[Rfam]
RNA sequence: AUAAAAGGUAGAGGCGCGGAAAUUAUCAGUAUCUGGAUUAAAGAUUAAAGCAUCUCCAGUGAAAGGAGUUUUUGCCGAAGCGUAUAGCUUGCUUUAGGGCUGUAUUGCUGGGGGUACACAGAAUAUGUGUAUCACUGUCACAAGUUAUCUUGUGUUGGGCUAUCAUUGAG
Number, nucleotide and partner (000 for none) at each position: 001a000002u000003a000004a000005a000006a000007g164008g163009u162010a161011g160012a000013g000014g000015c000016g075017c074018g073019g072020a071021a070022a069023u068024u067025a000026u000027c000028a000029g000030u000031a000032u000033c059034u058035g057036g056037a055038u000039u000040a000041a000042a000043g000044a000045u000046u000047a000048a000049a000050g000051c000052a000053u000054c000055u037056c036057c035058a034059g033060u000061g000062a000063a000064a000065g000066g000067a024068g023069u022070u021071u020072u019073u018074g017075c016076c000077g000078a000079a109080g108081c107082g106083u104084a103085u102086a101087g100088c099089u098090u097091g000092c000093u000094u000095u000096a000097g090098g089099g088100c087101u086102g085103u084104a083105u000106u082107g081108c080109u079110g136111g135112g000113g133114g132115u131116a130117c129118a128119c127120a126121g000122a000123a000124u000125a000126u120127g119128u118129g117130u116131a115132u114133c113134a000135c111136u110137g000138u000139c154140a153141c152142a151143a150144g149145u000146u000147a000148u000149c144150u143151u142152g141153u140154g139155u000156u000157g000158g000159g000160c011161u010162a009163u008164c007165a000166u000167u000168g000169a000170g000
RNA: Lysine riboswitch aptamer
Organism: Peptostreptococcus sp. D1